[Rfam]
RNA sequence: ACGAUGUUCCGCUGCUAGGUUAUCCAGGCAUGAGCAUUAG
Number, nucleotide and partner (000 for none) at each position: 001a000002c000003g038004a037005u036006g035007u034008u033009c032010c000011g000012c000013u030014g029015c027016u026017a000018g024019g000020u000021u000022a000023u000024c018025c000026a016027g015028g000029c014030a013031u000032g009033a008034g007035c006036a005037u004038u003039a000040g000